[Rfam]
RNA sequence: UGGGUUUCAUUUCAGGAACUAGACAACUAUCAUUUCAAUAAAUGAGUUUGAUGGUUGUAUAGUUCCUGAAAUGAAACCCA
Numbered sequence: 001u002g003g004g005u006u007u008c009a010u011u012u013c014a015g016g017a018a019c020u021a022g023a024c025a026a027c028u029a030u031c032a033u034u035u036c037a038a039u040a041a042a043u044g045a046g047u048u049u050g051a052u053g054g055u056u057g058u059a060u061a062g063u064u065c066c067u068g069a070a071a072u073g074a075a076a077c078c079c080a
Base pairs, nucleotide, nucleotide: 001080002079003078004077005076006074008073009072010071011070013068014067015066016065017064018063019062023058024057025056026055027054028053029052030051031050032049033046034045035044
This 80-nucleotide RNA sequence from Cimex lectularius belongs to the Rfam family "mir-306 microRNA precursor family". The family's consensus secondary structure was predicted with RNAalifold. On this family, see Stark et al., Genome Res 2007: "Systematic discovery and characterization of fly microRNAs using 12 Drosophila genomes". The organism belongs to Cimex, within Eukaryota.